[Rfam]
RNA sequence: GGCGGCCCGGGCCACGGCAGCAGUCGAUCAACGAAUACUGUCUGCCGUGAAUACCGGUCGCC
Numbered sequence: 001g002g003c004g005g006c007c008c009g010g011g012c013c014a015c016g017g018c019a020g021c022a023g024u025c026g027a028u029c030a031a032c033g034a035a036u037a038c039u040g041u042c043u044g045c046c047g048u049g050a051a052u053a054c055c056g057g058u059c060g061c062c
Base pairs, nucleotide, nucleotide: 001062002061003060004059005058006057013049014048015047016046017045018044019043020041021040022039023038024037025033026032
Shown here is a 62-nucleotide sequence from Pseudomonas japonica, a member of the family "gabT RNA". The source organism's lineage runs through Bacteria, Pseudomonadati, Gammaproteobacteria, Pseudomonadales and Pseudomonas. A search with the family's covariance model found it, with a score of 59 bits. The family's RNA type in Rfam is cis-regulatory element.